Overview: A member of the RNA family "Small nucleolar RNA snoR111" from Gossypium anomalum, 131 nucleotides long. It scores 87 bits against the family's covariance model. NCBI's taxonomy places the organism under Eukaryota, Embryophyta, Spermatophyta, Mesangiospermae, Gossypium. Rfam classes the family as an H/ACA-box small nucleolar RNA.

RNA sequence: AAAAGUGAGGACGCGGCUUAUAAGAUUGUCUCUUCAUAGGGAAGAACAUUGAGGUAUAUCAAAACCGAAGGCCGAGAUAUCGUUUCAGUCGUCAUUUCUCCAUUGACGAUCUGAUUGUUGCUCGUCCACAU
Numbered sequence: 001a002a003a004a005g006u007g008a009g010g011a012c013g014c015g016g017c018u019u020a021u022a023a024g025a026u027u028g029u030c031u032c033u034u035c036a037u038a039g040g041g042a043a044g045a046a047c048a049u050u051g052a053g054g055u056a057u058a059u060c061a062a063a064a065c066c067g068a069a070g071g072c073c074g075a076g077a078u079a080u081c082g083u084u085u086c087a088g089u090c091g092u093c094a095u096u097u098c099u100c101c102a103u104u105g106a107c108g109a110u111c112u113g114a115u116u117g118u119u120g121c122u123c124g125u126c127c128a129c130a131u
Stems, first nucleotide, its partner, number of pairs: 006040001009037001013032001015030003070127002073124004079115004088110007096102001
Dot-bracket structure: .....(..(...(.(((..........))).)....)..).............................((.((((..((((.....(((((((.(.....).))))))).)))).....)))).))....